[Rfam]
Shown here is an 80-nucleotide sequence from Microcaecilia unicolor, a member of the family "Small nucleolar RNA SNORD126".
RNA sequence: GUUCUGCAAUGAUGAUCUGUAUGUUCAGUCCGUGUUUCACCUGAUUUACUCAGUGAUUAUAUGCAUACCCUGAGCAGGCC
Numbered sequence: 001g002u003u004c005u006g007c008a009a010u011g012a013u014g015a016u017c018u019g020u021a022u023g024u025u026c027a028g029u030c031c032g033u034g035u036u037u038c039a040c041c042u043g044a045u046u047u048a049c050u051c052a053g054u055g056a057u058u059a060u061a062u063g064c065a066u067a068c069c070c071u072g073a074g075c076a077g078g079c080c
Stems, first nucleotide, its partner, number of pairs: 001080001003078005
Dot-bracket structure: (.(((((..................................................................))))).)
By type it is a C/D-box small nucleolar RNA. Gene Ontology terms of the family: nucleolus and RNA processing. For this family Rfam cites "snoSeeker: an advanced computational package for screening of guide and orphan snoRNA genes in the human genome" (Yang et al., Nucleic Acids Res, 2006).